[Rfam]
Nucleotides: 159
Stems, first nucleotide, its partner, number of pairs: 006158003011149001013101001015144003020138003025134005031129003040119005046078001047075002050072001056067004086109003091104003
Number, partner (000 for none) and nucleotide at each position: 001000u002000u003000a004000g005000c006158u007157g008156u009000u010000c011149g012000g013101u014000a015144g016143g017142u018000a019000a020138g021137g022136c023000u024000a025134c026133u027132g028131c029130a030000a031129g032128g033127g034000a035000u036000a037000u038000g039000g040119a041118c042117u043116g044115u045000u046078g047075c048074c049000g050072c051000g052000a053000a054000a055000u056067a057066g058065u059064g060000g061000a062000g063000a064059c065058a066057c067056u068000a069000u070000g071000a072050g073000a074048g075047g076000g077000u078046u079000u080000g081000a082000a083000c084000a085000g086109g087108g088107u089000g090000c091104a092103u093102c094000g095000a096000c097000a098000g099000c100000a101013a102093g103092g104091u105000g106000u107088a108087c109086c110000a111000u112000a113000a114000u115044a116043c117042a118041g119040u120000u121000u122000c123000a124000c125000c126000g127033c128032c129031c130029u131028g132027c133026a134025g135000a136022g137021u138020u139000a140000a141000a142017g143016c144015u145000c146000a147000u148000a149011c150000g151000a152000a153000u154000a155000u156008g157007c158006g159000a
Rfam assigns this 159-nucleotide sequence from Lachnoclostridium sp. An118 to the family "M-box riboswitch aptamer (ykoK leader)". From the family's description: M-box riboswitch, also know as ykoK leader is described as a metaloregulatory RNA that sense divalent metals and function as a genetic control element of genes related to divalent metal transport in bacteria. The pairing is the family consensus, mapped onto this sequence. It scores 88 bits against the family's covariance model.